[Rfam]
RNA sequence: UGUGCCGGGGUGGGCAGGCCCUGCGUCCAACUAACCCUAAUGGCGGCUGCGCCCCUCACACCCGCCCGCUGUUUUACUCGCUGACUUUCAGCGGGCAAAGGGCGCGGCCUAGGGAAAGGGGGGGGCGGGCAUGGGGGAGAAAUAGUUCCUGCCUCAAAAAAAGCCAGCGAAGGGGAUCUACACCCCGGCCCACCCUGGGGUCCCCCUCCCUUCUGCGCAACCGGGGAUGGUCCCGCCCUCGCCCCUCGUGGAGGCCGCGGUCGGCGGGCGCAGCGCCACUGCCGCCGCGAAGAGUUCGUCUCUGUCAGCCUCGGCGGCGGCGGGGACCGCAGGGCCGGCCCGCCCCCCUGGGCCGGCCUCCCCGGGGACCCCAGCAGAGCAAAACCGGGGCGGCGCCUCGGGGCGCUGAGCAGCCGUGGCUUCCUAAAACGUGGAGUACGCGGGCGGCGCCGCUCCGACACCC
Dot-bracket structure: ...(((((((((...((.((((............................((.((........((((((((........[[[[.[[[[))))))))....)).)).....................................................]]].].]]]]...))))..)).))))))))).....(((((((.......................((.((((((...(((((((..((........(((((.((((.(((.....)))...))))))))).((((.....)))).........))....)))))))......)))))).))...........................))))))).............((((((((((................(((((..((((........))))..)))))..))))))))))........

Shown here is a 463-nucleotide RNA sequence from Cettia cetti, a member of the family "Vertebrate telomerase RNA". For this family Rfam cites "Secondary structure of vertebrate telomerase RNA" (Chen et al., Cell, 2000). Its Rfam clan is "Telomerase clan". Pairs were carried over by alignment from the consensus structure, which is taken from published work. Telomerase is a ribonucleoprotein reverse transcriptase that synthesises telomeric DNA. Telomerase RNAs differ greatly in sequence and structure between vertebrates, ciliates and yeasts, but they share a 5' pseudoknot structure close to the template sequence. Vertebrate telomerase RNAs have a 3' H/ACA snoRNA-like domain. Taxonomically the source falls in Cettia (Eukaryota, Deuterostomia, Vertebrata, Archelosauria).